[Rfam]
RNA sequence: CGACCGCCCCAACGGCUUCCUGAAGGGGCGGGAAACACGCAUCGGAGCA
Number, nucleotide and partner (000 for none) at each position: 001c000002g000003a000004c031005c030006g029007c028008c027009c026010c025011a000012a000013c022014g021015g048016c047017u046018u000019c045020c044021u014022g013023a000024a000025g010026g009027g008028g007029c006030g005031g004032g000033a000034a000035a000036c000037a000038c000039g000040c000041a000042u000043c000044g020045g019046a017047g016048c015049a000